About this RNA:
The family of this 69-nucleotide RNA from Monodelphis domestica is "mir-8/mir-141/mir-200 microRNA precursor family". Clan: mir-8 microRNA precursor clan. The base pairs follow the family's consensus structure, which was predicted with RNAalifold.

RNA sequence: AUUGGUGUCUUACCAGACAAAGUUAGAUCUCGCUAUUUCUGUCUAAUACUGUCUGGUAAUGCCAUUGGU
Numbered sequence: 001a002u003u004g005g006u007g008u009c010u011u012a013c014c015a016g017a018c019a020a021a022g023u024u025a026g027a028u029c030u031c032g033c034u035a036u037u038u039c040u041g042u043c044u045a046a047u048a049c050u051g052u053c054u055g056g057u058a059a060u061g062c063c064a065u066u067g068g069u
Stems, first nucleotide, its partner, number of pairs: 002068006009061001010059010022047006

The sequence is in the family's curated seed alignment.